Overview: The family of this 76-nucleotide sequence from Mus spicilegus is "mir-3473 microRNA precursor family". The match comes from Rfam's covariance-model search (77 bits). The organism belongs to Mus, within Eukaryota.

RNA sequence: ACUGCUGAGCCAUCUCUCCAGCCCCUCUCUGGUGUUUUUUAAGAGUGGUUUUGGGCUGGAGAGAUGGCUCAGCAGU
Numbered sequence: 001a002c003u004g005c006u007g008a009g010c011c012a013u014c015u016c017u018c019c020a021g022c023c024c025c026u027c028u029c030u031g032g033u034g035u036u037u038u039u040u041a042a043g044a045g046u047g048g049u050u051u052u053g054g055g056c057u058g059g060a061g062a063g064a065u066g067g068c069u070c071a072g073c074a075g076u
Base pairs, nucleotide, nucleotide: 002075003074004073005072006071007070008069009068010067011066012065013064014063015062016061017060018059019058020057021056022055023054024053
Dot-bracket structure: .(((((((((((((((((((((((............................))))))))))))))))))))))).